[Rfam]
RNA sequence: CUCUUAUCGAGAGCGGUGGAGGGACUGGCCCUGUGAAACCGCGGCAACCUUCAAAGUCAUUUGAAAGGUGCCAAUUCCUGCUAAUAUCUUGAUAGAUAAGAG
Numbered sequence: 001c002u003c004u005u006a007u008c009g010a011g012a013g014c015g016g017u018g019g020a021g022g023g024a025c026u027g028g029c030c031c032u033g034u035g036a037a038a039c040c041g042c043g044g045c046a047a048c049c050u051u052c053a054a055a056g057u058c059a060u061u062u063g064a065a066a067g068g069u070g071c072c073a074a075u076u077c078c079u080g081c082u083a084a085u086a087u088c089u090u091g092a093u094a095g096a097u098a099a100g101a102g
Stems, first nucleotide, its partner, number of pairs: 001102008013042005021031003025080001027078002043072004048068002050064002053061001076094001081091001083089001
RNA: SAM riboswitch aptamer (S box leader)